[Rfam]
RNA sequence: AAAGAAGGAAGUCCGGCUAUGAGCGCCGUCUCCUGCGACAAUGCCGAACUGACACUCAUCCUCAGAG
Numbered sequence: 001a002a003a004g005a006a007g008g009a010a011g012u013c014c015g016g017c018u019a020u021g022a023g024c025g026c027c028g029u030c031u032c033c034u035g036c037g038a039c040a041a042u043g044c045c046g047a048a049c050u051g052a053c054a055c056u057c058a059u060c061c062u063c064a065g066a067g
Stems, first nucleotide, its partner, number of pairs: 011049002014046004025039001027037003055067003
Dot-bracket structure: ..........((.((((.......(.(((.....))).)...)))).)).....(((.......)))
Annotation
Bacillaceae-1 RNA: a 67-nucleotide RNA sequence from Alteribacillus persepolensis. Rfam 15.1 lists 5,721 matches to the family in 247 species. The organism belongs to Alteribacillus, within Bacteria. The base pairs follow the family's consensus structure, which is taken from published work.